[Rfam]
RNA sequence: AGAAGCCCCUCAUGUGGUGGCAUCUCGGUAAACUCCCCCAGGUCGGAAACGAAGCAAGGGUAGCCGGGCUCUGUCAGGUGCAUGAGGGGUCUUUUGU
Numbered sequence: 001a002g003a004a005g006c007c008c009c010u011c012a013u014g015u016g017g018u019g020g021c022a023u024c025u026c027g028g029u030a031a032a033c034u035c036c037c038c039c040a041g042g043u044c045g046g047a048a049a050c051g052a053a054g055c056a057a058g059g060g061u062a063g064c065c066g067g068g069c070u071c072u073g074u075c076a077g078g079u080g081c082a083u084g085a086g087g088g089g090u091c092u093u094u095u096g097u
Stems, first nucleotide, its partner, number of pairs: 003093003007089001009086006015078001018076005024068006035060003043052003
This 97-nucleotide RNA sequence from Leucobacter sp. cx-328 belongs to the Rfam family "Bacterial small signal recognition particle RNA".
The source organism's lineage runs through Bacteria, Bacillati, Actinomycetes, Microbacteriaceae and Leucobacter.
Rfam's curators write: The signal recognition particle (SRP) is a universally conserved ribonucleoprotein involved in the co-translational targeting of proteins to membranes.
Gene Ontology terms of the family: SRP-dependent cotranslational protein targeting to membrane, signal sequence recognition and signal recognition particle, plasma membrane targeting.
A search with the family's covariance model found it, with a score of 59 bits.